[Rfam]
RNA sequence: AUUUUUUCUCAGCUUUGAGAACUGAAUUCCAUGGGUUGUAAUUGAAUCUACUCUCAGACCCAUGGGGUUCAGUCUUUCAUCUUGGAUAUUUCUG
Numbered sequence: 001a002u003u004u005u006u007u008c009u010c011a012g013c014u015u016u017g018a019g020a021a022c023u024g025a026a027u028u029c030c031a032u033g034g035g036u037u038g039u040a041a042u043u044g045a046a047u048c049u050a051c052u053c054u055c056a057g058a059c060c061c062a063u064g065g066g067g068u069u070c071a072g073u074c075u076u077u078c079a080u081c082u083u084g085g086a087u088a089u090u091u092c093u094g
Base pairs, nucleotide, nucleotide: 008085009084011082012081018076019075021073022072023071024070025069033061034060035059036058
This 94-nucleotide RNA sequence from Oreocharis arfaki belongs to the Rfam family "mir-146 microRNA precursor family". For this family Rfam cites "Identification of tissue-specific microRNAs from mouse" (Lagos-Quintana et al., Curr Biol, 2002). The match comes from Rfam's covariance-model search (58 bits).